[Rfam]
Bacterial RNase P class A: a 392-nucleotide sequence from Methyloceanibacter stevinii.
A search with the family's covariance model found it, with a score of 306 bits.
Rfam classes the family as a ribozyme.
Lineage of the source: Bacteria > Pseudomonadota > Alphaproteobacteria > Hyphomicrobiales > Methyloceanibacter.
Its family is annotated with dimeric ribonuclease P complex, ribonuclease P activity and tRNA processing in the Gene Ontology.
Ribonuclease P (RNase P) is a ubiquitous endoribonuclease, found in archaea, bacteria and eukarya as well as chloroplasts and mitochondria.
RNA sequence: UCAGCAGGCCGGAUGGCCGCUCCUCAAGCCUGAGGAGAGGAAAGUCCGGGCUCCAUGGAAGCACGGUGCCGGAUAACGUCCGGCGGGGGCGACCCCAGGGAAAGUGCCACAGAAAGCAAACCGCCGUUCGACGGCUGCAAGGCCGGACAAGGGUAAGGGUGAAAGGGUGCGGUAAGAGCGCACCGCGUCUUUGGUAACAAAGGCGGCAGGGCAAACCCCACCGGGAGCAAGACCGAAUAGGGGCCGCAGGGGCGAAUUUUCGUCCAAGUCUGUUUCCAGACCGGCGGCCCGGGUUGGUUGCACGAGGCGCCUCGCAAGACGCGCCCCAGAUGAAUGGCCAUCACCUCGCACCAUGCGAGGUACAGAACCCGGCUUACAGGCUUGGUGACAUG
Numbered sequence: 001u002c003a004g005c006a007g008g009c010c011g012g013a014u015g016g017c018c019g020c021u022c023c024u025c026a027a028g029c030c031u032g033a034g035g036a037g038a039g040g041a042a043a044g045u046c047c048g049g050g051c052u053c054c055a056u057g058g059a060a061g062c063a064c065g066g067u068g069c070c071g072g073a074u075a076a077c078g079u080c081c082g083g084c085g086g087g088g089g090c091g092a093c094c095c096c097a098g099g100g101a102a103a104g105u106g107c108c109a110c111a112g113a114a115a116g117c118a119a120a121c122c123g124c125c126g127u128u129c130g131a132c133g134g135c136u137g138c139a140a141g142g143c144c145g146g147a148c149a150a151g152g153g154u155a156a157g158g159g160u161g162a163a164a165g166g167g168u169g170c171g172g173u174a175a176g177a178g179c180g181c182a183c184c185g186c187g188u189c190u191u192u193g194g195u196a197a198c199a200a201a202g203g204c205g206g207c208a209g210g211g212c213a214a215a216c217c218c219c220a221c222c223g224g225g226a227g228c229a230a231g232a233c234c235g236a237a238u239a240g241g242g243g244c245c246g247c248a249g250g251g252g253c254g255a256a257u258u259u260u261c262g263u264c265c266a267a268g269u270c271u272g273u274u275u276c277c278a279g280a281c282c283g284g285c286g287g288c289c290c291g292g293g294u295u296g297g298u299u300g301c302a303c304g305a306g307g308c309g310c311c312u313c314g315c316a317a318g319a320c321g322c323g324c325c326c327c328a329g330a331u332g333a334a335u336g337g338c339c340a341u342c343a344c345c346u347c348g349c350a351c352c353a354u355g356c357g358a359g360g361u362a363c364a365g366a367a368c369c370c371g372g373c374u375u376a377c378a379g380g381c382u383u384g385g386u387g388a389c390a391u392g
Stems, first nucleotide, its partner, number of pairs: 001388003005384006011377001012342007020037007042375003046372005051227004060275002064223005069083005084098001085096004099218002104216002106212003121158002123154003127151002130148001132146001166184006185207001186205008231299004241290006268281004306325005312319002
Dot-bracket structure: (((.((((((((((((((.(((((((....)))))))....[[[.[[[[[((((.....[[..((((((((((.....)))))(((((....)))).)((...(((((............(((((.((.(.(.............).).)))))..)).......((((((.......))))))(((((((((....)))))))).)..)))..)))))))))))))...((((......((((((.....................((((..]]..))))...)))))).....))))......(((((.((....)).)))))..........))))))).........................]]]]]]]].).)))))).)))....